[Rfam]
RNA sequence: UUUUCAUUCUUUCACACUCUCUCACCGGUCAGAGAGGCGAGAGAGUGUGCGAAAUGAAGAGA
Numbered sequence: 001u002u003u004u005c006a007u008u009c010u011u012u013c014a015c016a017c018u019c020u021c022u023c024a025c026c027g028g029u030c031a032g033a034g035a036g037g038c039g040a041g042a043g044a045g046u047g048u049g050c051g052a053a054a055u056g057a058a059g060a061g062a
Stems, first nucleotide, its partner, number of pairs: 001060007011051001013049006020042004
Dot-bracket structure: (((((((...(.((((((.((((...............)))).)))))).)..)))))))..
This 62-nucleotide sequence from Pristionchus pacificus belongs to the Rfam family "mir-8364 microRNA precursor family". The organism belongs to Pristionchus, within Eukaryota. The family has 13 seed sequences and 3,320 matches in Rfam 15.1.